[Rfam]
RNA sequence: CUUGCCGCCGGACGGAACCGGCCCCGAGGGUUGGGGAGCCCUGAGACGGGUCGUCUUCCGAGGAGUUGCCGGGUCUUAGGGAGCCCGCGUGACGCCGCUCUGGCGAAGGAG
Numbered sequence: 001c002u003u004g005c006c007g008c009c010g011g012a013c014g015g016a017a018c019c020g021g022c023c024c025c026g027a028g029g030g031u032u033g034g035g036g037a038g039c040c041c042u043g044a045g046a047c048g049g050g051u052c053g054u055c056u057u058c059c060g061a062g063g064a065g066u067u068g069c070c071g072g073g074u075c076u077u078a079g080g081g082a083g084c085c086c087g088c089g090u091g092a093c094g095c096c097g098c099u100c101u102g103g104c105g106a107a108g109g110a111g
Base pairs, nucleotide, nucleotide: 006105007104008103009102010101011100012099013060014059015058016057019053020052021051022050023049024048028041029040030039031038032037062096063095065093066092067091070087071086072085073084074083